[Rfam]
The family of this 87-nucleotide RNA sequence from Triticum urartu is "MIR1120/MIR1122 microRNA precursor family". Rfam 15.1 lists 44,765 matches to the family in 8 species. Pairs were carried over by alignment from the consensus structure, which was predicted with RNAalifold. On this family, see Yao et al., Genome Biol 2007: "Cloning and characterization of microRNAs from wheat (Triticum aestivum L.)". The match comes from Rfam's covariance-model search (94 bits).

RNA sequence: CUACUCCCUUCGUCCCAUAAUAUAAGAGCGUUUUCGACACUACACUAGUGUAGAAAGCGCUCUUAUAUUAUGGGAUGGAGGGAGUAU
Numbered sequence: 001c002u003a004c005u006c007c008c009u010u011c012g013u014c015c016c017a018u019a020a021u022a023u024a025a026g027a028g029c030g031u032u033u034u035c036g037a038c039a040c041u042a043c044a045c046u047a048g049u050g051u052a053g054a055a056a057g058c059g060c061u062c063u064u065a066u067a068u069u070a071u072g073g074g075a076u077g078g079a080g081g082g083a084g085u086a087u
Stems, first nucleotide, its partner, number of pairs: 003085003007081005013075005019069017037051005